RNA sequence: UGGAAAUGAGGACAAAACUGCAAGUCUUGAUUUAUUUGUGAAGACUUCUAAUCCAACUCUGAUCCACCCUGAACC
Numbered sequence: 001u002g003g004a005a006a007u008g009a010g011g012a013c014a015a016a017a018c019u020g021c022a023a024g025u026c027u028u029g030a031u032u033u034a035u036u037u038g039u040g041a042a043g044a045c046u047u048c049u050a051a052u053c054c055a056a057c058u059c060u061g062a063u064c065c066a067c068c069c070u071g072a073a074c075c
Stems, first nucleotide, its partner, number of pairs: 001066004
RNA: Small nucleolar RNA SNORD19